[Rfam]
This 186-nucleotide RNA belongs to the Rfam family "Streptomyces sRNA 4677".
The match comes from Rfam's covariance-model search (115 bits).
About the family: Located in the intergenic region between anti-sigma factor SCO4677 gene and a putative regulatory protein gene SCO4676. scr4677 expression requires the SCO4677 activity and scr4677 sRNA itself seem to affect the levels of the SCO4676-associated transcripts.
It is annotated as a small RNA.
Rfam 15.1 lists 563 matches to the family in 285 species.
RNA sequence: GACCUCGGUGGUCAGCCGCGGGAGGGGCGGGUCACCCACAUGGGUGAGAUUCACCAACUGGGCUGGAUUUCGGACGGGUUGGCAGGCAUAUGCUCACGCUGACCAACACCCAGACAUGAGACGGCCCCCGCCGGGACGGCAAUCCCGAACGAGGGCCUGACCACCAAGGAAGAAGAGAGCUUCCCG
Number, nucleotide and partner (000 for none) at each position: 001g000002a000003c000004c000005u000006c000007g000008g000009u000010g000011g000012u000013c000014a000015g000016c000017c000018g000019c000020g000021g000022g000023a000024g000025g000026g000027g000028c000029g000030g000031g000032u047033c046034a045035c044036c043037c042038a000039c000040a000041u000042g037043g036044g035045u034046g033047a032048g000049a000050u000051u000052c000053a000054c000055c000056a000057a000058c000059u000060g000061g000062g097063c000064u096065g095066g094067a000068u000069u000070u000071c000072g000073g000074a000075c000076g000077g000078g000079u000080u000081g000082g000083c000084a000085g000086g000087c000088a000089u000090a000091u000092g000093c000094u066095c065096a064097c062098g000099c000100u000101g000102a000103c000104c000105a000106a000107c000108a000109c000110c000111c000112a000113g000114a000115c000116a000117u000118g000119a000120g000121a000122c000123g157124g156125c155126c154127c153128c000129c151130g150131c000132c000133g146134g145135g144136a143137c000138g000139g000140c000141a000142a000143u136144c135145c134146c133147g000148a000149a000150c130151g129152a000153g127154g126155g125156c124157c123158u000159g000160a000161c000162c000163a000164c000165c000166a000167a000168g184169g183170a182171a181172g180173a000174a000175g000176a000177g000178a000179g000180c172181u171182u170183c169184c168185c000186g000